[Rfam]
RNA: Small Cajal body specific RNA 24
Organism: Otolemur garnettii
RNA sequence: CUGAUGUUUAUUUUUAUUCAGUUUCUUCUCAAGGUGAAGCUAACUGUUUGUAAAUGUCAAAAAGAAAUACAGUAACUUUCUAUUCACCCUUUGUAAGUAAAAAGGGUGGAUCCUUCCACUGCUGACAUAU
Numbered sequence: 001c002u003g004a005u006g007u008u009u010a011u012u013u014u015u016a017u018u019c020a021g022u023u024u025c026u027u028c029u030c031a032a033g034g035u036g037a038a039g040c041u042a043a044c045u046g047u048u049u050g051u052a053a054a055u056g057u058c059a060a061a062a063a064g065a066a067a068u069a070c071a072g073u074a075a076c077u078u079u080c081u082a083u084u085c086a087c088c089c090u091u092u093g094u095a096a097g098u099a100a101a102a103a104g105g106g107u108g109g110a111u112c113c114u115u116c117c118a119c120u121g122c123u124g125a126c127a128u129a130u
Base pairs, nucleotide, nucleotide: 002059003058004057005056006055007054008053009052010051011050020045021044022043023042025039026038027037028036070124071123072122073121074120089104090103091102092101